About this RNA: The record is a 103-nucleotide sequence from Yersinia enterocolitica, which matches "traJ-II RNA" in Rfam. The sequence is in the family's curated seed alignment.

[Rfam]
RNA sequence: GGGCAAGAUAGGUGAAGUUAGCUAACCAGCAAGCUGGUUAUCAAUCUUCACUCUCCCUUAUUCGCACCUUCGGCGCUCAACGGGGAUCUUGCUCUGCGAGGCA
Numbered sequence: 001g002g003g004c005a006a007g008a009u010a011g012g013u014g015a016a017g018u019u020a021g022c023u024a025a026c027c028a029g030c031a032a033g034c035u036g037g038u039u040a041u042c043a044a045u046c047u048u049c050a051c052u053c054u055c056c057c058u059u060a061u062u063c064g065c066a067c068c069u070u071c072g073g074c075g076c077u078c079a080a081c082g083g084g085g086a087u088c089u090u091g092c093u094c095u096g097c098g099a100g101g102c103a
Base pairs, nucleotide, nucleotide: 001094002093003092004091005090006089007088008087009086012051013050014049015048016047017046019044021042024039025038026037027036028035029034054085055084056083057082064076065075067073068072